[Rfam]
Nucleotides: 164
Stems, first nucleotide, its partner, number of pairs: 002066007009058001013054006020047003024040003094156005107145002112141003117135004
Number, partner (000 for none) and nucleotide at each position: 001000g002066g003065u004064c005063u006062g007061a008060u009058g010000c011000c012000a013054c014053g015052u016051c017050u018049u019000u020047g021046a022045u023000a024040g025039c026038u027000a028000c029000a030000u031000a032000u033000a034000u035000u036000u037000g038026a039025g040024c041000u042000c043000u044000g045022a046021u047020c048000a049018a050017a051016g052015a053014u054013g055000c056000u057000a058009u059000g060008a061007u062006u063005g064004g065003a066002c067000c068000a069000a070000a071000a072000u073000c074000a075000a076000g077000a078000g079000u080000g081000u082000u083000a084000a085000u086000c087000a088000u089000u090000u091000g092000u093000u094156u095155c096154g097153c098152a099000u100000u101000c102000u103000g104000a105000u106000a107145g108144g109000a110000a111000u112141c113140u114139g115000c116000u117135g118134a119133u120132c121000u122000u123000a124000u125000a126000u127000a128000u129000a130000a131000u132120g133119a134118u135117c136000c137000u138000g139114c140113a141112g142000a143000g144108c145107c146000g147000a148000u149000u150000u151000g152098u153097g154096c155095g156094a157000u158000u159000a160000c161000a162000u163000u164000u